[Rfam]
RNA: Small nucleolar RNA SNORD14
RNA sequence: UUUCGAUGAUGAAGAAUUUUCCAUUCAUUUGCGGUUUCCACCAGAGAGUUCUUGAACUCGAAGAUGGCUUUUGACCUUCCUUGGAUGUCUGAGUAA
Numbered sequence: 001u002u003u004c005g006a007u008g009a010u011g012a013a014g015a016a017u018u019u020u021c022c023a024u025u026c027a028u029u030u031g032c033g034g035u036u037u038c039c040a041c042c043a044g045a046g047a048g049u050u051c052u053u054g055a056a057c058u059c060g061a062a063g064a065u066g067g068c069u070u071u072u073g074a075c076c077u078u079c080c081u082u083g084g085a086u087g088u089c090u091g092a093g094u095a096a
Base pairs, nucleotide, nucleotide: 001096002095004093046059047058048057049056050055